[Rfam]
RNA sequence: AAAAAUUAUAUCGAAAUCCGUCGUAUAAUAUCGGGAAUAAGGCUCGAGAGUUUCUACCAGGCUACCGUAAAUGGCUUGACUACGAGGGGACAGGACAAUAAA
Numbered sequence: 001a002a003a004a005a006u007u008a009u010a011u012c013g014a015a016a017u018c019c020g021u022c023g024u025a026u027a028a029u030a031u032c033g034g035g036a037a038u039a040a041g042g043c044u045c046g047a048g049a050g051u052u053u054c055u056a057c058c059a060g061g062c063u064a065c066c067g068u069a070a071a072u073g074g075c076u077u078g079a080c081u082a083c084g085a086g087g088g089g090a091c092a093g094g095a096c097a098a099u100a101a102a
Stems, first nucleotide, its partner, number of pairs: 018088002021085005029049001031047005058078007
Rfam assigns this 102-nucleotide sequence from Exobacillus caeni to the family "Purine riboswitch aptamer". From the family's description: Riboswitches are metabolite binding domains within certain messenger RNAs that serve as precision sensors for their corresponding targets. NCBI's taxonomy places the organism under Bacteria, Bacillati, Bacilli, Guptibacillaceae, Exobacillus. Its family is annotated with purine nucleobase biosynthetic process in the Gene Ontology.